[Rfam]
RNA sequence: CGACGUCAUCACGGUAUUGCUUUGUCUACAUUUGGGAAAGAGCGAUGGCGUCAUCACUUUUACCAAAAUUGUAGACAAAGAAGCACGGAGAUGACGUGUU
Numbered sequence: 001c002g003a004c005g006u007c008a009u010c011a012c013g014g015u016a017u018u019g020c021u022u023u024g025u026c027u028a029c030a031u032u033u034g035g036g037a038a039a040g041a042g043c044g045a046u047g048g049c050g051u052c053a054u055c056a057c058u059u060u061u062a063c064c065a066a067a068a069u070u071g072u073a074g075a076c077a078a079a080g081a082a083g084c085a086c087g088g089a090g091a092u093g094a095c096g097u098g099u100u
Base pairs, nucleotide, nucleotide: 003097004096005095006094007093008092009091010090012088014086015085018082020080021079022078023077024076025075026074027073028072029071030069031068032067033066035064036063038061039060041058042057044055045054046053047052
RNA: MIR158 microRNA precursor family